[Rfam]
RNA sequence: GUAACGGUCACCGCAAGGUCCCUGCCACAAGGGCAGGCUGUCUUACGCGGCUCGCGCGUCGAGUCGCAACCCGGCAACGCCGGCUUCAACAAAACCCGCCGGACUUCGAUCCGGC
Dot-bracket structure: .........(((....))).((((((.....)))))).........((((((((.....))))))))...((((.....))))..............((((((......))))))
The family of this 115-nucleotide RNA sequence from Pseudomonas aeruginosa is "Pseudomon-groES RNA".
The family's consensus secondary structure is taken from published work.
By type it is a cis-regulatory element.